[Rfam]
RNA sequence: UGCUGGCUUUCCAACAGCCAGCGCGAAUACCGAAGAGGCUUGUCCUUCAUUGCCAGGUGUGCGGUAGGGUCACUCCCAACCAAUCCACGGCAGCACUUACGGUCUGUACUUUUGGCUUUGCCACGCCUCCAUCGCGUGUCUGGGUC
Numbered sequence: 001u002g003c004u005g006g007c008u009u010u011c012c013a014a015c016a017g018c019c020a021g022c023g024c025g026a027a028u029a030c031c032g033a034a035g036a037g038g039c040u041u042g043u044c045c046u047u048c049a050u051u052g053c054c055a056g057g058u059g060u061g062c063g064g065u066a067g068g069g070u071c072a073c074u075c076c077c078a079a080c081c082a083a084u085c086c087a088c089g090g091c092a093g094c095a096c097u098u099a100c101g102g103u104c105u106g107u108a109c110u111u112u113u114g115g116c117u118u119u120g121c122c123a124c125g126c127c128u129c130c131a132u133c134g135c136g137u138g139u140c141u142g143g144g145u146c
Base pairs, nucleotide, nucleotide: 001023002022003021004020005019006018007017008016037054038053039052061137062136063135105120106119108117109115
RNA: speF leader
Organism: Tardiphaga robiniae